Description:
The record is an 89-nucleotide sequence from Marinobacterium lacunae, which matches "t44 RNA" in Rfam. This family consists of a number of bacterial RNA genes of between 135 and 170 bases in length. The t44 gene has been identified in several species of enteric bacteria but homologs have also been identified in Pseudomonas and Coxiella species. The t44 gene is found between the map and rpsB genes in all species in the full alignment apart from Shigella flexneri. The function of this RNA is unknown. A search with the family's covariance model found it, with a score of 57 bits. The family's RNA type in Rfam is small RNA.
RNA sequence: CGCGGGGCAUAAACACAACACACACAUUCCGACACGCCGCUCCUGGGUGCCGCAUUGCGGUUGGACGGUGGGGUAUGUGGAGGUUUGAA
Numbered sequence: 001c002g003c004g005g006g007g008c009a010u011a012a013a014c015a016c017a018a019c020a021c022a023c024a025c026a027u028u029c030c031g032a033c034a035c036g037c038c039g040c041u042c043c044u045g046g047g048u049g050c051c052g053c054a055u056u057g058c059g060g061u062u063g064g065a066c067g068g069u070g071g072g073g074u075a076u077g078u079g080g081a082g083g084u085u086u087g088a089a
Stems, first nucleotide, its partner, number of pairs: 023079005029073002035070005041065003049061005